[Rfam]
RNA sequence: GGCUGUCUGGCUGUAGCAGCACGUAAAUAUUGGAGUUAAAGCAAUACUGAAUCCUCCAGUAUUGACCGUGCUGCUGAAGUUAGGCAGGC
Numbered sequence: 001g002g003c004u005g006u007c008u009g010g011c012u013g014u015a016g017c018a019g020c021a022c023g024u025a026a027a028u029a030u031u032g033g034a035g036u037u038a039a040a041g042c043a044a045u046a047c048u049g050a051a052u053c054c055u056c057c058a059g060u061a062u063u064g065a066c067c068g069u070g071c072u073g074c075u076g077a078a079g080u081u082a083g084g085c086a087g088g089c
Stems, first nucleotide, its partner, number of pairs: 001089001003087004014076010024065001026063010

About this RNA:
Shown here is an 89-nucleotide RNA from Electrophorus electricus, a member of the family "mir-15 microRNA precursor family". NCBI's taxonomy places the organism under Eukaryota, Neopterygii, Clupeocephala, Ostariophysi, Electrophorus. The base pairs follow the family's consensus structure, which was predicted with RNAalifold. This family represents the related mir-15a and mir-15b sequences. In humans miR-15a and miR-16 are clustered within 0.5 kb at 13q14. This region has been shown to be deleted in more than half of B cell chronic lymphocytic leukaemias (CLL).